The family of this 100-nucleotide sequence from Roseburia sp. 1XD42-69 is "SAM riboswitch aptamer (S box leader)". The base pairs follow the family's consensus structure, which is taken from published work. It scores 73 bits against the family's covariance model. Rfam links the family to the GO term regulation of gene expression.
RNA sequence: CUCUUAUUCAGAGUGAUGGAGAUACAUAGGAUCUGUGAAGUCACGGCAACCCCAGUUACUGGAAGGUGCCAACCUGAGCGAGUGAAUCGAGCAAUAAGAG
Numbered sequence: 001c002u003c004u005u006a007u008u009c010a011g012a013g014u015g016a017u018g019g020a021g022a023u024a025c026a027u028a029g030g031a032u033c034u035g036u037g038a039a040g041u042c043a044c045g046g047c048a049a050c051c052c053c054a055g056u057u058a059c060u061g062g063a064a065g066g067u068g069c070c071a072a073c074c075u076g077a078g079c080g081a082g083u084g085a086a087u088c089g090a091g092c093a094a095u096a097a098g099a100g
Stems, first nucleotide, its partner, number of pairs: 001100008013044005021033003027078001030075001045070004050066002052062004079089003